[Rfam]
RNA sequence: GCUGAGACUGAAGUCACACCCUGACACUAUUUGUCCUGGGAUGCUAGAGUUCUCGGAGAGAAUUUGCUAGUCUUCAUUCAGUGGUGGAGGCUAUUUGUGCCCAUCAGAAACAUGG
Numbered sequence: 001g002c003u004g005a006g007a008c009u010g011a012a013g014u015c016a017c018a019c020c021c022u023g024a025c026a027c028u029a030u031u032u033g034u035c036c037u038g039g040g041a042u043g044c045u046a047g048a049g050u051u052c053u054c055g056g057a058g059a060g061a062a063u064u065u066g067c068u069a070g071u072c073u074u075c076a077u078u079c080a081g082u083g084g085u086g087g088a089g090g091c092u093a094u095u096u097g098u099g100c101c102c103a104u105c106a107g108a109a110a111c112a113u114g115g
Base pairs, nucleotide, nucleotide: 002056003055004054005053006052007050008049009048012045013044015043016042019039020038023035024034025033026032067107068106070104071103075099079097080096081095082093083092084091
The record is a 115-nucleotide RNA from Heterocephalus glaber, which matches "Small nucleolar RNA SNORA3/SNORA45 family" in Rfam. The family's RNA type in Rfam is H/ACA-box small nucleolar RNA. Its Rfam clan is "SNORA3 clan". The base pairs follow the family's consensus structure, which was predicted with RNAalifold. Rfam's curators write: The members of this family belong to the H/ACA class of snoRNAs which are thought to guide the sites of modification of uridines to pseudouridines. Rfam 15.1 lists 2,080 matches to the family in 639 species. A reference for the family is Huttenhofer et al. (2001), "RNomics: an experimental approach that identifies 201 candidates for novel, small, non-messenger RNAs in mouse", EMBO J.